[Rfam]
RNA sequence: UAGAGCCGUCAGGGGAGUCUCGCCAAAGAGACUGAGAGGCUACUAGCGAGCGAUUCGCGGCGUAGCGACCCUUAGAACCUGACCCAGUUGAUACUGGCGUAGGAAGACGGGCCGCUGAUGCU
Numbered sequence: 001u002a003g004a005g006c007c008g009u010c011a012g013g014g015g016a017g018u019c020u021c022g023c024c025a026a027a028g029a030g031a032c033u034g035a036g037a038g039g040c041u042a043c044u045a046g047c048g049a050g051c052g053a054u055u056c057g058c059g060g061c062g063u064a065g066c067g068a069c070c071c072u073u074a075g076a077a078c079c080u081g082a083c084c085c086a087g088u089u090g091a092u093a094c095u096g097g098c099g100u101a102g103g104a105a106g107a108c109g110g111g112c113c114g115c116u117g118a119u120g121c122u
Base pairs, nucleotide, nucleotide: 006110007109008108009107010106011072012071013070014069017032018031019030020029021028039066040065041064042063043062078103079102080101081100084097085096086095087094
RNA: TPP riboswitch aptamer (THI element)
Organism: Duffyella gerundensis